Notes
This 228-nucleotide part of an RNA from Prosthecomicrobium pneumaticum belongs to the Rfam family "Bacterial large subunit ribosomal RNA". The base pairs follow the family's consensus structure, which is taken from published work. NCBI's taxonomy places the organism under Bacteria, Pseudomonadati, Alphaproteobacteria, Kaistiaceae, Prosthecomicrobium.

[Rfam]
Nucleotides: 228
Base pairs, nucleotide, nucleotide: 005085006084007083008082009081010080011079012078013077014076015075016074017073020041021040022039023038026035027034028033045052046051055067056066057065058064088226089225091223095216096215097214098213099212100211104192105191106190107189108188109187110186111185112184113183114182115180117149118148119147120146124141125140126139127138128137129136153177154176155175157174158173159172160171161170194204195203196202
Number, partner (000 for none) and nucleotide at each position: 001000g002000a003000c004000u005085u006084a007083g008082u009081c010080u011079g012078a013077c014076g015075a016074g017073c018000a019000a020041g021040c022039u023038u024000a025000a026035g027034c028033c029000g030000g031000u032000a033028g034027g035026c036000g037000u038023a039022g040021g041020c042000g043000u044000a045052g046051c047000g048000a049000a050000a051046g052045c053000g054000a055067g056066u057065c058064u059000g060000a061000a062000c063000a064058g065057g066056g067055c068000g069000u070000u071000c072000a073017g074016u075015u076014c077013g078012u079011c080010g081009g082008a083007u084006u085005a086000g087000a088226c089225c090000c091223g092000a093000a094000a095216c096215c097214g098213g099212g100211u101000g102000a103000u104192c105191u106190a107189g108188c109187c110186a111185u112184g113183a114182g115180c116000a117149g118148g119147c120146u121000g122000a123000a124141g125140g126139u127138g128137c129136g130000g131000u132000a133000a134000c135000a136129c137128g138127c139126a140125c141124u142000g143000a144000a145000g146120g147119g148118c149117c150000g151000a152000a153177c154176c155175g156000a157174c158173g159172u160171c161170u162000g163000u164000u165000g166000a167000a168000a169000a170161a171160g172159a173158c174157g175155c176154g177153g178000a179000u180115g181000a182114c183113u184112u185111g186110u187109g188108g189107c190106u191105a192104g193000g194204g195203g196202u197000g198000a199000a200000a201000g202196g203195c204194c205000a206000a207000u208000c209000a210000a211100a212099c213098u214097c215096g216095g217000a218000a219000a220000u221000a222000g223091c224000u225089g226088g227000u228000u